[Rfam]
RNA: S15-Halobacteria ribosomal protein leader
RNA sequence: ACGGGAACAGCACGACCGCAAAUCUGACACGCCGUCGCGUUCGACGGCUCGGGAUUGCGGUAGUGC
Numbered sequence: 001a002c003g004g005g006a007a008c009a010g011c012a013c014g015a016c017c018g019c020a021a022a023u024c025u026g027a028c029a030c031g032c033c034g035u036c037g038c039g040u041u042c043g044a045c046g047g048c049u050c051g052g053g054a055u056u057g058c059g060g061u062a063g064u065g066c
Stems, first nucleotide, its partner, number of pairs: 010066004015061007024053002031048007